[Rfam]
RNA sequence: GUUGAAAAAGGUACACUAUCCCAAAGGGUAGGCCGCGAAGUUUUGGGUCUAAAUCACUUUUAGUGACAUGAUUGCCAAGCUGCCGAUU
Numbered sequence: 001g002u003u004g005a006a007a008a009a010g011g012u013a014c015a016c017u018a019u020c021c022c023a024a025a026g027g028g029u030a031g032g033c034c035g036c037g038a039a040g041u042u043u044u045g046g047g048u049c050u051a052a053a054u055c056a057c058u059u060u061u062a063g064u065g066a067c068a069u070g071a072u073u074g075c076c077a078a079g080c081u082g083c084c085g086a087u088u
Stems, first nucleotide, its partner, number of pairs: 001088001003085002011036002016031006034074001039081004044077003047072003

Rfam assigns this 88-nucleotide RNA to the family "c-di-GMP-I-GGC riboswitch aptamer". Pairs were carried over by alignment from the consensus structure, which is taken from published work.